[Rfam]
RNA sequence: GUCACCUGAGAACCUUGUUAAAAUGUAGAUUCUGAUUCAGGAGGUCUGGGAUGGAGCCAGAGAAUCUGCAUUUCUAGCAAGCUCCCAGGUGAUGCACA
Numbered sequence: 001g002u003c004a005c006c007u008g009a010g011a012a013c014c015u016u017g018u019u020a021a022a023a024u025g026u027a028g029a030u031u032c033u034g035a036u037u038c039a040g041g042a043g044g045u046c047u048g049g050g051a052u053g054g055a056g057c058c059a060g061a062g063a064a065u066c067u068g069c070a071u072u073u074c075u076a077g078c079a080a081g082c083u084c085c086c087a088g089g090u091g092a093u094g095c096a097c098a
Stems, first nucleotide, its partner, number of pairs: 003091003010084002014081007021073003025069005031063003
Dot-bracket structure: ..(((....((..((((((((((.(((((.(((...........................))).))))).))).))))))).))....))).......
RNA: mir-544 microRNA precursor family
Organism: Trichechus manatus